Rfam assigns this 100-nucleotide sequence from Weeksella virosa to the family "Purine riboswitch aptamer". Rfam describes the family as follows. Riboswitches are metabolite binding domains within certain messenger RNAs that serve as precision sensors for their corresponding targets. Taxonomically the source falls in Weeksella virosa (Bacteria, Pseudomonadati, Flavobacteriales, Weeksellaceae).

[Rfam]
RNA sequence: UUUUUUUCAAUUAAAAACAUUUGUAUAAACUCAUAAUACGGUUGAGUGUUUCUACAGCAAACCAUCGAAAUUUGCUUCUACAAAUUGUUUUUUUUACUUC
Number, nucleotide and partner (000 for none) at each position: 001u000002u000003u000004u000005u000006u000007u000008c000009a000010a000011u000012u000013a000014a000015a000016a000017a000018c000019a085020u084021u083022u082023g081024u080025a079026u000027a000028a000029a047030c046031u045032c044033a043034u000035a000036a000037u000038a000039c000040g000041g000042u000043u033044g032045a031046g030047u029048g000049u000050u000051u000052c000053u000054a000055c000056a076057g075058c074059a073060a072061a071062c000063c000064a000065u000066c000067g000068a000069a000070a000071u061072u060073u059074g058075c057076u056077u000078c000079u025080a024081c023082a022083a021084a020085u019086u000087g000088u000089u000090u000091u000092u000093u000094u000095u000096a000097c000098u000099u000100c000